[Rfam]
RNA sequence: GAGAGUAAGGUGAGAAACCUUACCGCCGGAAGCCUGAGGUUUCCUGGGGAAGGGUAAUCCACCCAGGGUAAGUCGGGGCCUAAGCCGAGGCUUAAAGCGUAGGCGAUGGGGAACCGGUAGAGAAUCCGGUACCACCGAGGGCCGCAAAGAGAUGCGGGGACGCAGCGAGAUAGGUGGAGCGUGCGGUUGGUAGGGCACGUCCAAUCAGGCACCGAAGGGUACGUAGGCAAAUCCGCGUACUGGCAGGGGUCUGAGAAGGGGAGCCGGAAGGCGAAGCCACCGAAGCAGCUGCCGAGAAAAGCCGCUAUCGAGGCCUGAGGUGCCCGUACUACAAACCGACACAGGUAGGCGAGGAGAGAAUCCACAGGCGAG
Numbered sequence: 001g002a003g004a005g006u007a008a009g010g011u012g013a014g015a016a017a018c019c020u021u022a023c024c025g026c027c028g029g030a031a032g033c034c035u036g037a038g039g040u041u042u043c044c045u046g047g048g049g050a051a052g053g054g055u056a057a058u059c060c061a062c063c064c065a066g067g068g069u070a071a072g073u074c075g076g077g078g079c080c081u082a083a084g085c086c087g088a089g090g091c092u093u094a095a096a097g098c099g100u101a102g103g104c105g106a107u108g109g110g111g112a113a114c115c116g117g118u119a120g121a122g123a124a125u126c127c128g129g130u131a132c133c134a135c136c137g138a139g140g141g142c143c144g145c146a147a148a149g150a151g152a153u154g155c156g157g158g159g160a161c162g163c164a165g166c167g168a169g170a171u172a173g174g175u176g177g178a179g180c181g182u183g184c185g186g187u188u189g190g191u192a193g194g195g196c197a198c199g200u201c202c203a204a205u206c207a208g209g210c211a212c213c214g215a216a217g218g219g220u221a222c223g224u225a226g227g228c229a230a231a232u233c234c235g236c237g238u239a240c241u242g243g244c245a246g247g248g249g250u251c252u253g254a255g256a257a258g259g260g261g262a263g264c265c266g267g268a269a270g271g272c273g274a275a276g277c278c279a280c281c282g283a284a285g286c287a288g289c290u291g292c293c294g295a296g297a298a299a300a301g302c303c304g305c306u307a308u309c310g311a312g313g314c315c316u317g318a319g320g321u322g323c324c325c326g327u328a329c330u331a332c333a334a335a336c337c338g339a340c341a342c343a344g345g346u347a348g349g350c351g352a353g354g355a356g357a358g359a360a361u362c363c364a365c366a367g368g369c370g371a372g
Stems, first nucleotide, its partner, number of pairs: 005023006024370004032350004038330002043067006052060002074326004079109002084104003088100001090098003113130005133322004139316005149309002154305004162292004169286001173281005179200006201259002205254004212247002218241007226234002263272003336345002353363003

Annotation: Rfam assigns this 372-nucleotide part of an RNA from Thermoanaerobacter sp. X513 to the family "Bacterial large subunit ribosomal RNA".